[Rfam]
RNA: mir-103/107 microRNA precursor family
RNA sequence: CUCCGCUUUUAGCCUCUUUACAGUGCUGCCUUGUCUAAUCAUGUUCAAGCAGCAUUGUACAGGGCUAUGACAGCGUAG
Numbered sequence: 001c002u003c004c005g006c007u008u009u010u011a012g013c014c015u016c017u018u019u020a021c022a023g024u025g026c027u028g029c030c031u032u033g034u035c036u037a038a039u040c041a042u043g044u045u046c047a048a049g050c051a052g053c054a055u056u057g058u059a060c061a062g063g064g065c066u067a068u069g070a071c072a073g074c075g076u077a078g
Base pairs, nucleotide, nucleotide: 014064015063016062017061019059020058021057022056023055024054025053026052027051028050030049031048032047033046